The family of this 245-nucleotide RNA sequence from Chaetomium sp. MPI-SDFR-AT-0129 is "Small nucleolar RNA snR191". The base pairs follow the family's consensus structure, which was predicted with WAR. It is annotated as an H/ACA-box small nucleolar RNA. A reference for the family is Badis et al. (2003), "A snoRNA that guides the two most conserved pseudouridine modifications within rRNA confers a growth advantage in yeast", RNA.
[Rfam]
RNA sequence: CCCCAGGGCUUUCGUCAGGAUCUUUCCGCAUUGCUGUGCACAAAUCAUGGAAUCCAUCCGUUACAUCCCUGGGAGAGCGAUCUCCACUUCCAACUUCCUUGAUCUGGUCAUCAGAUUGAGGAUUGACAGGGCUCCGUUUUGGGGUCCUAUCGCCGGAUACCGGACGUGUUUCAUACGAGUUGAAGGCCGCUACUGUCCGUUCUGGGCAGCACGUGGCUGUCUUCUUAGUGAUGAUUUAUACAUAC
Numbered sequence: 001c002c003c004c005a006g007g008g009c010u011u012u013c014g015u016c017a018g019g020a021u022c023u024u025u026c027c028g029c030a031u032u033g034c035u036g037u038g039c040a041c042a043a044a045u046c047a048u049g050g051a052a053u054c055c056a057u058c059c060g061u062u063a064c065a066u067c068c069c070u071g072g073g074a075g076a077g078c079g080a081u082c083u084c085c086a087c088u089u090c091c092a093a094c095u096u097c098c099u100u101g102a103u104c105u106g107g108u109c110a111u112c113a114g115a116u117u118g119a120g121g122a123u124u125g126a127c128a129g130g131g132c133u134c135c136g137u138u139u140u141g142g143g144g145u146c147c148u149a150u151c152g153c154c155g156g157a158u159a160c161c162g163g164a165c166g167u168g169u170u171u172c173a174u175a176c177g178a179g180u181u182g183a184a185g186g187c188c189g190c191u192a193c194u195g196u197c198c199g200u201u202c203u204g205g206g207c208a209g210c211a212c213g214u215g216g217c218u219g220u221c222u223u224c225u226u227a228g229u230g231a232u233g234a235u236u237u238a239u240a241c242a243u244a245c
Base pairs, nucleotide, nucleotide: 003072004071005070006069007068018059019058020057021056024052025051026050027049029038030037083164084163085162088159095122096121097120100118101117102116103115104114105113106112125151126150130146131145132144133143134142135141136140166239167238168237171234172233173232174231182224183223184222185221187219189217190216193209194208195207196206197205198204